Rfam assigns this 173-nucleotide RNA from Rummeliibacillus sp. TYF005 to the family "Group II catalytic intron D1-D4-3". Pairs were carried over by alignment from the consensus structure.
[Rfam]
RNA sequence: UCCAUGGUGACGUGGAAUCUGAAGGAAGCCGGACGCAAAUUCUCGAACUGACGAACAGAAACUAUAUACAAGGCUGAAUUGGAAUGGACGAGUUUGCUUAACAAAACAAAGUCCAAUACUGUCCGAACUCCAUACAGUAAAUAUAGCAGUUACAUGAGAAGAAGGUAACCACU
Numbered sequence: 001u002c003c004a005u006g007g008u009g010a011c012g013u014g015g016a017a018u019c020u021g022a023a024g025g026a027a028g029c030c031g032g033a034c035g036c037a038a039a040u041u042c043u044c045g046a047a048c049u050g051a052c053g054a055a056c057a058g059a060a061a062c063u064a065u066a067u068a069c070a071a072g073g074c075u076g077a078a079u080u081g082g083a084a085u086g087g088a089c090g091a092g093u094u095u096g097c098u099u100a101a102c103a104a105a106a107c108a109a110a111g112u113c114c115a116a117u118a119c120u121g122u123c124c125g126a127a128c129u130c131c132a133u134a135c136a137g138u139a140a141a142u143a144u145a146g147c148a149g150u151u152a153c154a155u156g157a158g159a160a161g162a163a164g165g166u167a168a169c170c171a172c173u
Stems, first nucleotide, its partner, number of pairs: 001016006028173001031170002035166002040160006046151005062146006073138003078133002081131003086114004092107004
Dot-bracket structure: ((((((....))))))...........(..((..((...(((((((((((...........((((((.....(((..((.(((..((((..((((........))))...))))..............)))))..)))..)))))))))))...))))))....))..))..)
A search with the family's covariance model found it, with a score of 150 bits.